[Rfam]
RNA: small nucleolar RNA snoR21
RNA sequence: UUUUUAAUGAUGAAACGAUGACGAGUAUGAAAAAAUAAAGAUCAUUUGUUAAUGUUUUUAAAGACAUGUUUUAUGUACUUAAUAAUAUUUAACAAAUGCAUUCUUCAUUUUUACUCCAUGAUUAUUUGAGGCAUUUGGCUGAAAAA
Numbered sequence: 001u002u003u004u005u006a007a008u009g010a011u012g013a014a015a016c017g018a019u020g021a022c023g024a025g026u027a028u029g030a031a032a033a034a035a036u037a038a039a040g041a042u043c044a045u046u047u048g049u050u051a052a053u054g055u056u057u058u059u060a061a062a063g064a065c066a067u068g069u070u071u072u073a074u075g076u077a078c079u080u081a082a083u084a085a086u087a088u089u090u091a092a093c094a095a096a097u098g099c100a101u102u103c104u105u106c107a108u109u110u111u112u113a114c115u116c117c118a119u120g121a122u123u124a125u126u127u128g129a130g131g132c133a134u135u136u137g138g139c140u141g142a143a144a145a146a
Stems, first nucleotide, its partner, number of pairs: 017135004031112006038105002040080002